[Rfam]
RNA sequence: AAAAAUGCCAGCUAAGUUACGUCUGUAUGUACAGGCGCGUCAGAGGUUGGCUAGAGCGUGACUGGUUGAGUUCCUGGGGAAGCCUGGGUGAUUAACAGUCAUAUAGU
Numbered sequence: 001a002a003a004a005a006u007g008c009c010a011g012c013u014a015a016g017u018u019a020c021g022u023c024u025g026u027a028u029g030u031a032c033a034g035g036c037g038c039g040u041c042a043g044a045g046g047u048u049g050g051c052u053a054g055a056g057c058g059u060g061a062c063u064g065g066u067u068g069a070g071u072u073c074c075u076g077g078g079g080a081a082g083c084c085u086g087g088g089u090g091a092u093u094a095a096c097a098g099u100c101a102u103a104u105a106g107u
Stems, first nucleotide, its partner, number of pairs: 007051007020037007060100005066095004073088006
RNA: Small nucleolar RNA GlsR20